[Rfam]
RNA sequence: GUCACGCGAACGGCAACGGCUAACGAUGAGUACCCUCAUCCGCUGGCCCACCCCCAUGACGGGAUAGUUAUGAGGGCUGUUUGCGGGUUCCGUCUGGUGCGUUUGGCGCACUUCGGGCUCGACACUGCGCUACCCCGCAGGCCGACCGAUACACGGGUUUCGUGAUCGCUGUUCUGGCAGGGUGCUAGGAAUUGAUCCGACCAGUG
Numbered sequence: 001g002u003c004a005c006g007c008g009a010a011c012g013g014c015a016a017c018g019g020c021u022a023a024c025g026a027u028g029a030g031u032a033c034c035c036u037c038a039u040c041c042g043c044u045g046g047c048c049c050a051c052c053c054c055c056a057u058g059a060c061g062g063g064a065u066a067g068u069u070a071u072g073a074g075g076g077c078u079g080u081u082u083g084c085g086g087g088u089u090c091c092g093u094c095u096g097g098u099g100c101g102u103u104u105g106g107c108g109c110a111c112u113u114c115g116g117g118c119u120c121g122a123c124a125c126u127g128c129g130c131u132a133c134c135c136c137g138c139a140g141g142c143c144g145a146c147c148g149a150u151a152c153a154c155g156g157g158u159u160u161c162g163u164g165a166u167c168g169c170u171g172u173u174c175u176g177g178c179a180g181g182g183u184g185c186u187a188g189g190a191a192u193u194g195a196u197c198c199g200a201c202c203a204g205u206g
Base pairs, nucleotide, nucleotide: 018048019047020046021045022044025040026039027038028037029036030035051076052075053074055072056071057070058069059068060067085120086119087118088117090116091115092114097111098110099109100108101107138176139175140174141173143171145170147168148167149166150165152164153163154162155161186200188198189197190196